[Rfam]
RNA: c-di-AMP riboswitch aptamer (ydaO/yuaA leader)
Organism: Conexibacter arvalis
RNA sequence: UGCCGAAUCCCCUGCCGAGCGCGGGGGAGCGGGGGACCCACACGACGUUUCCCCGGGGCGAAUCGCGGUCUGCUGACCGCGUAGCGCAUCGCGCGAGCCCGACAGCUAACCCCGCAGGCG
Numbered sequence: 001u002g003c004c005g006a007a008u009c010c011c012c013u014g015c016c017g018a019g020c021g022c023g024g025g026g027g028a029g030c031g032g033g034g035g036a037c038c039c040a041c042a043c044g045a046c047g048u049u050u051c052c053c054c055g056g057g058g059c060g061a062a063u064c065g066c067g068g069u070c071u072g073c074u075g076a077c078c079g080c081g082u083a084g085c086g087c088a089u090c091g092c093g094c095g096a097g098c099c100c101g102a103c104a105g106c107u108a109a110c111c112c113c114g115c116a117g118g119c120g
Base pairs, nucleotide, nucleotide: 001120002119003118004117008028009027010026011025012024013023014022015021029115030114031113032112033111034110039055056100057099058098064081065080066079067078084094085093086092087091